[Rfam]
RNA sequence: UAAAAGGUUAUCGCGUGGAAGAGGAAUUGGAGGUGUUCCUCGUGACCCCGGGGAGUAACAAUUCAAGUUAUGGCGACAUAUGAAGCACCUGUGUGCUCUUCCUGUGGAAUCCACAGCAAGAGACUUCGGAAGCGUAGUUUUUUGGUACCUGGGCAGCUGGUGAUCAUUGGUCCUGGUGCUGCG
Numbered sequence: 001u002a003a004a005a006g007g008u009u010a011u012c013g014c015g016u017g018g019a020a021g022a023g024g025a026a027u028u029g030g031a032g033g034u035g036u037u038c039c040u041c042g043u044g045a046c047c048c049c050g051g052g053g054a055g056u057a058a059c060a061a062u063u064c065a066a067g068u069u070a071u072g073g074c075g076a077c078a079u080a081u082g083a084a085g086c087a088c089c090u091g092u093g094u095g096c097u098c099u100u101c102c103u104g105u106g107g108a109a110u111c112c113a114c115a116g117c118a119a120g121a122g123a124c125u126u127c128g129g130a131a132g133c134g135u136a137g138u139u140u141u142u143u144g145g146u147a148c149c150u151g152g153g154c155a156g157c158u159g160g161u162g163a164u165c166a167u168u169g170g171u172c173c174u175g176g177u178g179c180u181g182c183g
Stems, first nucleotide, its partner, number of pairs: 001010002014104002017102007025094001105128004110123002152180003156177005162172004
RNA: U11 spliceosomal RNA
Organism: Camelus ferus